[Rfam]
This 294-nucleotide sequence from Oenanthe oenanthe belongs to the Rfam family "7SK RNA". About the family: 7SK was discovered as an abundant small nuclear RNA in the mid-70s but a possible function has only recently been suggested. Two independent studies have found that 7SK RNA binds the CDK9/cyclin T complex (known as elongation factor P-TEFb). It is annotated as a non-coding RNA gene. The source organism's lineage runs through Eukaryota, Chordata, Saurischia, Neognathae and Oenanthe. The family's consensus secondary structure is taken from published work.
Nucleotides: 294
Base pairs, nucleotide, nucleotide: 001106002105003104005100006099007098008097009096010095011094013091014090018089025085027083028082029081030080031079032078033077036072037069038068039067042066044064046062047061048060114167115166118162120136121135123134125133137158139157144155145154146153199257200256201255205251213247221242222241223240259293260292262289263288264287265286266285267282268281269280270279271277
Number, partner (000 for none) and nucleotide at each position: 001106g002105g003104a004000u005100g006099u007098g008097g009096g010095g011094g012000c013091a014090g015000u016000c017000u018089g019000g020000c021000u022000g023000c024000a025085a026000c027083a028082u029081c030080u031079g032078u033077c034000a035000c036072c037069c038068c039067a040000c041000u042066g043000a044064u045000g046062a047061c048060c049000a050000g051000c052000c053000u054000g055000a056000u057000u058000g059000a060048g061047g062046u063000g064044a065000c066042c067039u068038g069037g070000c071000u072036g073000c074000c075000u076000u077033g078032g079031u080030g081029g082028g083027u084000a085025u086000c087000c088000a089018c090014u091013u092000c093000c094011u095010c096009c097008u098007c099006a100005u101000u102000g103000c104003u105002c106001c107000a108000u109000g110000u111000g112000c113000a114167u115166c116000c117000c118162u119000a120136c121135c122000a123134a124000a125133g126000g127000u128000g129000c130000a131000c132000a133125c134123u135121g136120g137158u138000u139157g140000a141000a142000g143000a144155g145154g146153g147000u148000g149000a150000u151000c152000u153146u154145c155144c156000c157139c158137a159000u160000g161000g162118a163000c164000a165000u166115g167114g168000u169000g170000c171000u172000g173000u174000u175000c176000a177000u178000c179000a180000g181000u182000c183000a184000a185000g186000g187000g188000u189000a190000c191000c192000u193000u194000g195000a196000c197000u198000a199257g200256u201255a202000g203000g204000u205251a206000c207000c208000c209000c210000c211000u212000a213247c214000u215000a216000g217000a218000a219000c220000c221242a222241c223240c224000c225000u226000a227000c228000a229000a230000a231000c232000a233000a234000g235000c236000u237000c238000a239000a240223g241222g242221u243000u244000a245000u246000g247213g248000c249000u250000a251205u252000u253000u254000a255201u256200g257199c258000u259293g260292g261000a262289a263288c264287u265286g266285c267282a268281a269280u270279u271277u272000a273000u274000c275000u276000a277271a278000u279270g280269a281268u282267u283000u284000u285266g286265c287264a288263g289262u290000g291000a292260c293259c294000u